[Rfam]
RNA sequence: GCCGGGUCUCUAGCGAAGGCCUGUAACUCAUGCGAGGGCUUUAAGAUGGUUGAAGACUGAAUUGUUUCAGAGGGUUGGUCAAUGUUUGGAGUACUUAUCUGGCUUGCCCAAUCCAAGUAGGGAGUUGGGUCAUGGACCAUCGGCCCAGGCCUUCUGUUCCUGGUCUUUAGAGAGGACGGCACCGUGUGAGGCUGGUUUCACAGAGCAGCAAGCACCUCCCGCUCCUGUCGGUGGAAGGAUCACAAGCCAGUUCUCCACUUGGCCAUCAAUACCUGAUGAACCAUUCAUCCAAACAACCAUUUUU
Numbered sequence: 001g002c003c004g005g006g007u008c009u010c011u012a013g014c015g016a017a018g019g020c021c022u023g024u025a026a027c028u029c030a031u032g033c034g035a036g037g038g039c040u041u042u043a044a045g046a047u048g049g050u051u052g053a054a055g056a057c058u059g060a061a062u063u064g065u066u067u068c069a070g071a072g073g074g075u076u077g078g079u080c081a082a083u084g085u086u087u088g089g090a091g092u093a094c095u096u097a098u099c100u101g102g103c104u105u106g107c108c109c110a111a112u113c114c115a116a117g118u119a120g121g122g123a124g125u126u127g128g129g130u131c132a133u134g135g136a137c138c139a140u141c142g143g144c145c146c147a148g149g150c151c152u153u154c155u156g157u158u159c160c161u162g163g164u165c166u167u168u169a170g171a172g173a174g175g176a177c178g179g180c181a182c183c184g185u186g187u188g189a190g191g192c193u194g195g196u197u198u199c200a201c202a203g204a205g206c207a208g209c210a211a212g213c214a215c216c217u218c219c220c221g222c223u224c225c226u227g228u229c230g231g232u233g234g235a236a237g238g239a240u241c242a243c244a245a246g247c248c249a250g251u252u253c254u255c256c257a258c259u260u261g262g263c264c265a266u267c268a269a270u271a272c273c274u275g276a277u278g279a280a281c282c283a284u285u286c287a288u289c290c291a292a293a294c295a296a297c298c299a300u301u302u303u304u
Stems, first nucleotide, its partner, number of pairs: 001039003004022005009016002027036003043303010058287005064281002067279003072274004077264006084258002089255003093252001099250008108238002112235004117229001120226006127166006134159004142151003167172001174219003178215001183212001185210003192203003
The family of this 304-nucleotide RNA from Daucus carota is "Plant signal recognition particle RNA". Rfam 15.1 lists 4,988 matches to the family in 266 species. It scores 199 bits against the family's covariance model. The family is grouped with related families in Rfam's "SRP clan". NCBI's taxonomy places the organism under Eukaryota, Viridiplantae, Tracheophyta, asterids, Daucus carota.